RNA sequence: GAUCAUGCUUUUCCACAGCUUUCUUGAACUUUCUCUGUGUACUUAAUUCCCAGAAUAUCACAAUAUGUAUGUAUGUAUAUGGCAUGAAAGUUCAAGAAAGCUUUGGGAAAACAUGAUGG
Dot-bracket structure: ..(((((.....(((.((((((.((((.(((((....................................................))))).)))).)))))).))).....)))))...
RNA: MIR396 microRNA precursor family
Organism: Hibiscus syriacus